[Rfam]
RNA: Small nucleolar RNA SNORD82
Organism: Nyctereutes procyonoides
RNA sequence: UGCACAAGUGAUGAACAACAAAGGGACUUAAUACUGAGACAUGAUGUAAUACGAUGUCUGAUGUGC
Numbered sequence: 001u002g003c004a005c006a007a008g009u010g011a012u013g014a015a016c017a018a019c020a021a022a023g024g025g026a027c028u029u030a031a032u033a034c035u036g037a038g039a040c041a042u043g044a045u046g047u048a049a050u051a052c053g054a055u056g057u058c059u060g061a062u063g064u065g066c
Base pairs, nucleotide, nucleotide: 002066003065004064005063006062